[Rfam]
A member of the RNA family "Molybdenum/Tungsten riboswitch aptamer (Moco RNA motif)" from Colwellia ponticola, 199 nucleotides long. A reference for the family is Regulski et al. (2008), "in molybdenum cofactor and tungsten cofactor metabolism", Mol Microbiol. NCBI's taxonomy places the organism under Bacteria, Pseudomonadota, Alteromonadales, Colwelliaceae, Colwellia.
RNA sequence: CUAUUUUUAUAACACCGAGCUAUCACAGCUAACUUUACUUUAUUUUUGUUUAAAAUACGGCAGCUUAUGCCAAUUUAUCCGAAGUAUUCAUGUUGUGCUAUGCCGUAACUAAGCGUAUUUAAUAUGCCUUAGUUACCAGGGUUAACAAGGAAACACGUUAGCCUCCCGACAUUUGGAAAGGUGACAUGCUAACAGACAA
Numbered sequence: 001c002u003a004u005u006u007u008u009a010u011a012a013c014a015c016c017g018a019g020c021u022a023u024c025a026c027a028g029c030u031a032a033c034u035u036u037a038c039u040u041u042a043u044u045u046u047u048g049u050u051u052a053a054a055a056u057a058c059g060g061c062a063g064c065u066u067a068u069g070c071c072a073a074u075u076u077a078u079c080c081g082a083a084g085u086a087u088u089c090a091u092g093u094u095g096u097g098c099u100a101u102g103c104c105g106u107a108a109c110u111a112a113g114c115g116u117a118u119u120u121a122a123u124a125u126g127c128c129u130u131a132g133u134u135a136c137c138a139g140g141g142u143u144a145a146c147a148a149g150g151a152a153a154c155a156c157g158u159u160a161g162c163c164u165c166c167c168g169a170c171a172u173u174u175g176g177a178a179a180g181g182u183g184a185c186a187u188g189c190u191a192a193c194a195g196a197c198a199a
Stems, first nucleotide, its partner, number of pairs: 004192001013183004019103002021100002024097006105136009139164008149154001165176002
Dot-bracket structure: ...(........((((..((((.((((((..............................................................)))))).)).)).(((((((((..............)))))))))..((((((((..(....)..))))))))((........))...))))........).......